Rfam assigns this 68-nucleotide RNA sequence from Otolemur garnettii to the family "Small nucleolar RNA SNORD77". For this family Rfam cites "Guide RNAs with 5' caps and novel box C/D snoRNA-like domains for modification of snRNAs in metazoa" (Tycowski et al., Curr Biol, 2004). It scores 80 bits against the family's covariance model. Its Rfam clan is "SNORD77 clan". The base pairs follow the family's consensus structure, which was predicted with RNAalifold. The family has 21 seed sequences and 396 matches in Rfam 15.1. About the family: U77 belongs to the C/D family of snoRNAs.
RNA sequence: AUACUAUGAUGGUUGCAUAGUUCAGCAGAUUGAAUCAUGAAGAAAUUAGCCAUUUGUCUGAUGUAAAA
Numbered sequence: 001a002u003a004c005u006a007u008g009a010u011g012g013u014u015g016c017a018u019a020g021u022u023c024a025g026c027a028g029a030u031u032g033a034a035u036c037a038u039g040a041a042g043a044a045a046u047u048a049g050c051c052a053u054u055u056g057u058c059u060g061a062u063g064u065a066a067a068a
Stems, first nucleotide, its partner, number of pairs: 002065003006038005013028004043055004